RNA sequence: UACAAUGGGAUUGGCUCCUCAAGGGUGGUCUGGCUCACCUCCAUAUUGAAAGGAGGUGAUGCUUAUGACAGUAUUUGAAUCGCUAUCACUUACGAUCGCUUUCGGCGUUUUAAUUGCGGCACUGUCACGAGACAAAAAGAAAUAGACCUCCCUUGAGCCUAGACAACUUGUAGGGAUGGUCUAUUUAAAAGACUACCGAGCCAGCCACUCUUAUAAAGAGUUAACUAUUGUACAGGGCCGUGGGUGUUACCAGCACCUACG
Numbered sequence: 001u002a003c004a005a006u007g008g009g010a011u012u013g014g015c016u017c018c019u020c021a022a023g024g025g026u027g028g029u030c031u032g033g034c035u036c037a038c039c040u041c042c043a044u045a046u047u048g049a050a051a052g053g054a055g056g057u058g059a060u061g062c063u064u065a066u067g068a069c070a071g072u073a074u075u076u077g078a079a080u081c082g083c084u085a086u087c088a089c090u091u092a093c094g095a096u097c098g099c100u101u102u103c104g105g106c107g108u109u110u111u112a113a114u115u116g117c118g119g120c121a122c123u124g125u126c127a128c129g130a131g132a133c134a135a136a137a138a139g140a141a142a143u144a145g146a147c148c149u150c151c152c153u154u155g156a157g158c159c160u161a162g163a164c165a166a167c168u169u170g171u172a173g174g175g176a177u178g179g180u181c182u183a184u185u186u187a188a189a190a191g192a193c194u195a196c197c198g199a200g201c202c203a204g205c206c207a208c209u210c211u212u213a214u215a216a217a218g219a220g221u222u223a224a225c226u227a228u229u230g231u232a233c234a235g236g237g238c239c240g241u242g243g244g245u246g247u248u249a250c251c252a253g254c255a256c257c258u259a260c261g
Base pairs, nucleotide, nucleotide: 001232002231003230004229005228007226008225012203013202014201015200016199017198018157019156020155021154022153023152024151025150028147029146030145031144035059036058037057039055040054041053042052067126068125069124070123071122072121080095081094082093105117106116107115168188169187207221208220209219210218239261240260241259242258243257244256245255246254247253248252
The family of this 261-nucleotide RNA from Pueribacillus theae is "BsrG". The source organism's lineage runs through Bacteria, Bacillati, Bacilli, Caryophanales and Pueribacillus. A reference for the family is Jahn and Brantl (2013), "One antitoxin--two functions: SR4 controls toxin mRNA decay and translation", Nucleic Acids Res. Rfam describes the family as follows. bsrE, bsrG and bsrH pair through intermolecular interactions with antisense sRNAs.